[Rfam]
RNA sequence: GUCACUGGAGCCUCUGGUUCGCUUGGUACAGGUCGGGAAGCGAUCAAAUCCCUCAGCAACCGGAAGAAGCCGCUUCCCGCCUUGCAUCAACUGAAUCGGAGGCUGCAGUGAUG
Numbered sequence: 001g002u003c004a005c006u007g008g009a010g011c012c013u014c015u016g017g018u019u020c021g022c023u024u025g026g027u028a029c030a031g032g033u034c035g036g037g038a039a040g041c042g043a044u045c046a047a048a049u050c051c052c053u054c055a056g057c058a059a060c061c062g063g064a065a066g067a068a069g070c071c072g073c074u075u076c077c078c079g080c081c082u083u084g085c086a087u088c089a090a091c092u093g094a095a096u097c098g099g100a101g102g103c104u105g106c107a108g109u110g111a112u113g
Base pairs, nucleotide, nucleotide: 013100014099017096018095019094020093023090024089025088026087027086029084030083031082032081034079035078036077037076038075040073041072
Notes
The record is a 113-nucleotide RNA from Kalanchoe fedtschenkoi, which matches "MIR168 microRNA precursor family" in Rfam. The match comes from Rfam's covariance-model search (84 bits). The literature on the family includes a 2002 paper in Genes Dev by Reinhart et al., "MicroRNAs in plants". Taxonomically the source falls in Kalanchoe (Eukaryota, Viridiplantae, Streptophytina, Saxifragales). The family has 10 seed sequences and 518 matches in Rfam 15.1. Rfam links the family to the GO terms miRNA-mediated post-transcriptional gene silencing and RISC complex. Pairs were carried over by alignment from the consensus structure, which was predicted with WAR.